[Rfam]
RNA sequence: ACUGAGGAAUGAUGACAAUAAAAGGCCGAAUUGCAGUGCUUCCAUAAGCAGUUUGCUCUCUACAUGGAGCACAAUGACAAAGACUCCUGAAGCGAACUAUUGAUCUGACCUCAGU
Numbered sequence: 001a002c003u004g005a006g007g008a009a010u011g012a013u014g015a016c017a018a019u020a021a022a023a024g025g026c027c028g029a030a031u032u033g034c035a036g037u038g039c040u041u042c043c044a045u046a047a048g049c050a051g052u053u054u055g056c057u058c059u060c061u062a063c064a065u066g067g068a069g070c071a072c073a074a075u076g077a078c079a080a081a082g083a084c085u086c087c088u089g090a091a092g093c094g095a096a097c098u099a100u101u102g103a104u105c106u107g108a109c110c111u112c113a114g115u
Base pairs, nucleotide, nucleotide: 001115002114003113004112005111006110007109014105015104025034026033035101036100037099038098041095042094043092045090047088048087051075052074054071055070056069057068058067076086077085
A member of the RNA family "Small nucleolar RNA SNORD89" from Ornithorhynchus anatinus, 115 nucleotides long. snoRNA HBII-289 belongs to the family of C/D snoRNAs. It is the human orthologue of the mouse MBII-289 and has no identified RNA target. The organism belongs to Ornithorhynchus, within Eukaryota. Rfam classes the family as a C/D-box small nucleolar RNA. For this family Rfam cites "RNomics: an experimental approach that identifies 201 candidates for novel, small, non-messenger RNAs in mouse" (Huttenhofer et al., EMBO J, 2001). Rfam's curators put it in the seed alignment.